[Rfam]
RNA: IS605-orfB-I RNA
RNA sequence: UCUGGAUAAACUUGUAUUCUCCCAAGAGAGAGGAACAAGUCACUUUACGGAAUUAAAUAAGCAACACAUUUAAGGAUUGCCAAAGACUUACAUAUAAGCGAAAUCCUUGAAUGACUAGGAUAACCGUAUGUCCUUUGACAUAUUAUGUCAUAAAAGUAAUCUUGAACAGCUUUGAUUAAGUUUUCAAGUUACGAUUGA
Numbered sequence: 001u002c003u004g005g006a007u008a009a010a011c012u013u014g015u016a017u018u019c020u021c022c023c024a025a026g027a028g029a030g031a032g033g034a035a036c037a038a039g040u041c042a043c044u045u046u047a048c049g050g051a052a053u054u055a056a057a058u059a060a061g062c063a064a065c066a067c068a069u070u071u072a073a074g075g076a077u078u079g080c081c082a083a084a085g086a087c088u089u090a091c092a093u094a095u096a097a098g099c100g101a102a103a104u105c106c107u108u109g110a111a112u113g114a115c116u117a118g119g120a121u122a123a124c125c126g127u128a129u130g131u132c133c134u135u136u137g138a139c140a141u142a143u144u145a146u147g148u149c150a151u152a153a154a155a156g157u158a159a160u161c162u163u164g165a166a167c168a169g170c171u172u173u174g175a176u177u178a179a180g181u182u183u184u185c186a187a188g189u190u191a192c193g194a195u196u197g198a
Stems, first nucleotide, its partner, number of pairs: 001051004006046001008044001010040006017034005022028001067113004072108007087098001089096001117134005123195001125193004129156001136150005161188006168181001